[Rfam]
RNA sequence: UUGAAUAUAAUUGAUUUAUGUUUGGAUACAUUUAGUAAAAGUGAUUCUUACCAAUUUAUAUUGUUUGGAUAG
Numbered sequence: 001u002u003g004a005a006u007a008u009a010a011u012u013g014a015u016u017u018a019u020g021u022u023u024g025g026a027u028a029c030a031u032u033u034a035g036u037a038a039a040a041g042u043g044a045u046u047c048u049u050a051c052c053a054a055u056u057u058a059u060a061u062u063g064u065u066u067g068g069a070u071a072g
Stems, first nucleotide, its partner, number of pairs: 010059002013056004020051002024047004029043005